Notes:
A member of the RNA family "mir-399 microRNA precursor family" from Cucumis sativus, 137 nucleotides long. The match comes from Rfam's covariance-model search (60 bits). The literature on the family includes a 2004 paper in Mol Cell by Jones-Rhoades and Bartel, "Computational Identification of Plant MicroRNAs and Their Targets, Including a Stress-Induced miRNA".
RNA sequence: UGAGAAAUGACAGUGCAAUUCUCCUCUGGCAACAACAUGAAUGAAACAACAGUUACUUUUUUUUGAAAAAAAAAAUGCAUUUGUAAAUGUGUUGUUUAUGUUUCUUUGCCAAAGGAGAAUUGCCCUGCCAUUUACUC
Numbered sequence: 001u002g003a004g005a006a007a008u009g010a011c012a013g014u015g016c017a018a019u020u021c022u023c024c025u026c027u028g029g030c031a032a033c034a035a036c037a038u039g040a041a042u043g044a045a046a047c048a049a050c051a052g053u054u055a056c057u058u059u060u061u062u063u064u065g066a067a068a069a070a071a072a073a074a075a076u077g078c079a080u081u082u083g084u085a086a087a088u089g090u091g092u093u094g095u096u097u098a099u100g101u102u103u104c105u106u107u108g109c110c111a112a113a114g115g116a117g118a119a120u121u122g123c124c125c126u127g128c129c130a131u132u133u134a135c136u137c
Stems, first nucleotide, its partner, number of pairs: 005133005011127003015123005021117004027111006035103001